[Rfam]
RNA sequence: CGAAUCCUUCAGGGCAGGGUGUAAUUCCCUACCGGCGGUGAUGCAGUAUGUGAGGAUAUCUAUCCAGCAUUAAUGCAAAGUCCGUGACCCGUCUGCCUGUGGCAGAUGGCUGAUCUGGUGUAAUUCCAGAACCGACAGUAUAGUCUGGAUGGGAGAAGGAGAGG
Number, nucleotide and partner (000 for none) at each position: 001c000002g000003a000004a000005u160006c159007c158008u157009u156010c155011a000012g000013g000014g000015c000016a000017g029018g028019g027020u000021g000022u000023a000024a000025u000026u000027c019028c018029c017030u000031a144032c143033c134034g133035g085036c084037g083038g082039u000040g000041a000042u000043g000044c000045a000046g000047u000048a000049u000050g000051u000052g000053a000054g000055g000056a000057u000058a000059u000060c000061u000062a000063u000064c000065c000066a000067g000068c000069a000070u000071u000072a000073a000074u000075g000076c000077a000078a000079a000080g000081u000082c038083c037084g036085u035086g000087a000088c000089c109090c108091g000092u000093c000094u000095g000096c000097c000098u000099g000100u000101g000102g000103c000104a000105g000106a000107u000108g090109g089110c000111u000112g000113a000114u130115c129116u128117g127118g126119u000120g000121u000122a000123a000124u000125u000126c118127c117128a116129g115130a114131a000132c000133c034134g033135a000136c147137a146138g145139u000140a000141u000142a000143g032144u031145c138146u137147g136148g000149a000150u000151g000152g000153g000154a000155g010156a009157a008158g007159g006160a005161g000162a000163g000164g000

Overview:
The record is a 164-nucleotide sequence from Paenibacillus xylanivorans, which matches "FMN riboswitch aptamer (RFN element)" in Rfam. The family's consensus secondary structure is taken from published work.